[Rfam]
RNA sequence: UUAAUAUACAGACGCUGCAUAUAUUAGAUAUAUAUUUUAAAGCAGAGGAAAGUCCGGGUUUCAUAGAGCAAGAUGCCAGGUAACGCUGGGAGAGAUUAUCUACGAAAGCUGCAACAGAAACUAUACCGCCUCUUAGGUAAGGGUGAAAGGUAUGCUAAGAACAUGCUAUUAUAUUGGGAACAGCCUAUAUAUGUAAGCUCCAUCUGAAACAAAGCUAACUAAAAGUUCUAAAGGUAUUGCUCGUAUUGGGUUGGGUAGAAUGCUUGAACUAAUAUGAGAUUAUUAGUCUAGAUAAAUGGAUGUUUAAUAUACAGAACCCAGCUUAUAUUAGUUUC
Number, nucleotide and partner (000 for none) at each position: 001u331002u330003a329004a328005u327006a326007u000008a303009c302010a301011g000012a000013c298014g000015c045016u044017g043018c042019a000020u040021a000022u000023a037024u000025u000026a000027g000028a000029u000030a000031u000032a000033u000034a000035u000036u000037u023038u000039a000040a020041a000042g018043c017044a016045g015046a000047g000048g000049a000050a324051a323052g322053u000054c321055c000056g319057g318058g317059u209060u208061u207062c206063a000064u000065a000066g242067a241068g240069c239070a000071a205072g204073a203074u202075g201076c089077c088078a087079g086080g000081u000082a000083a000084c000085g000086c079087u078088g077089g076090g103091a101092g100093a099094g000095a000096u000097u000098a000099u093100c092101u091102a000103c090104g200105a199106a000107a000108g000109c000110u197111g194112c193113a192114a000115c000116a000117g000118a000119a000120a000121c000122u000123a000124u000125a000126c142127c141128g138129c137130c136131u135132c000133u000134u000135a131136g130137g129138u128139a000140a000141g127142g126143g000144u000145g000146a000147a000148a000149g167150g166151u165152a164153u163154g162155c000156u000157a000158a000159g000160a000161a000162c154163a153164u152165g151166c150167u149168a190169u000170u187171a186172u000173a000174u183175u182176g181177g000178g000179a000180a000181c176182a175183g174184c000185c000186u171187a170188u000189a000190u168191a000192u113193g112194u111195a000196a000197g110198c000199u105200c104201c075202a074203u073204c072205u071206g062207a061208a060209a059210c000211a000212a000213a261214g000215c000216u258217a000218a000219c000220u000221a000222a000223a252224a251225g000226u000227u250228c249229u000230a000231a000232a000233g247234g246235u245236a244237u243238u000239g069240c068241u067242c066243g237244u236245a235246u234247u233248g000249g228250g227251u224252u223253g000254g000255g000256u000257a000258g216259a000260a000261u213262g000263c000264u000265u000266g000267a000268a287269c286270u285271a284272a283273u282274a281275u000276g000277a000278g000279a000280u000281u274282a273283u272284u271285a270286g269287u268288c000289u000290a000291g000292a000293u000294a000295a000296a000297u000298g013299g000300a000301u010302g009303u008304u000305u000306a000307a000308u000309a000310u000311a000312c000313a000314g000315a000316a000317c058318c057319c056320a000321g054322c052323u051324u050325a000326u006327a005328u004329u003330a002331g001332u000333u000334u000335c000
RNA: Bacterial RNase P class A